[Rfam]
RNA sequence: GCUGUGCAGGGAUGAACCGUUAUCUGGAGACGGUUGGAUGAAUCUUGCGGAUAUGGGACUGAGCGCAGCA
Numbered sequence: 001g002c003u004g005u006g007c008a009g010g011g012a013u014g015a016a017c018c019g020u021u022a023u024c025u026g027g028a029g030a031c032g033g034u035u036g037g038a039u040g041a042a043u044c045u046u047g048c049g050g051a052u053a054u055g056g057g058a059c060u061g062a063g064c065g066c067a068g069c070a
Stems, first nucleotide, its partner, number of pairs: 001069005